Rfam assigns this 117-nucleotide RNA from Pelotomaculum isophthalicicum to the family "Molybdenum/Tungsten riboswitch aptamer (Moco RNA motif)". The source organism's lineage runs through Bacteria, Bacillati, Bacillota, Clostridia and Pelotomaculum isophthalicicum. The family's consensus secondary structure is taken from published work.

RNA sequence: CUAUAGCUUAUUCUCCGAGCCAGGUGACCUUAGCCUGUGGUAUGGAUGCCUGACCGGCGGGUAUACCGGGAAACCGGUACGCCUCCCAUCGUGGAAAGGAGAGCACAGUUUAGAUGU
Numbered sequence: 001c002u003a004u005a006g007c008u009u010a011u012u013c014u015c016c017g018a019g020c021c022a023g024g025u026g027a028c029c030u031u032a033g034c035c036u037g038u039g040g041u042a043u044g045g046a047u048g049c050c051u052g053a054c055c056g057g058c059g060g061g062u063a064u065a066c067c068g069g070g071a072a073a074c075c076g077g078u079a080c081g082c083c084u085c086c087c088a089u090c091g092u093g094g095a096a097a098g099g100a101g102a103g104c105a106c107a108g109u110u111u112a113g114a115u116g117u
Stems, first nucleotide, its partner, number of pairs: 003111001011103006019054001021052006028045002033041003059084004064079006085094002